[Rfam]
RNA sequence: GGAUGCAAGUUUGAGGCCACAGCGAAAGCGCUCAUGGUGUGGCCUGUCAGAUUUCAAUGAACCUGUGAAUUCUGCU
Numbered sequence: 001g002g003a004u005g006c007a008a009g010u011u012u013g014a015g016g017c018c019a020c021a022g023c024g025a026a027a028g029c030g031c032u033c034a035u036g037g038u039g040u041g042g043c044c045u046g047u048c049a050g051a052u053u054u055c056a057a058u059g060a061a062c063c064u065g066u067g068a069a070u071u072c073u074g075c076u
Stems, first nucleotide, its partner, number of pairs: 015044004021076004026071002028040003048065003052061003
RNA: Mammalian CPEB3 ribozyme
Organism: Crocodylus porosus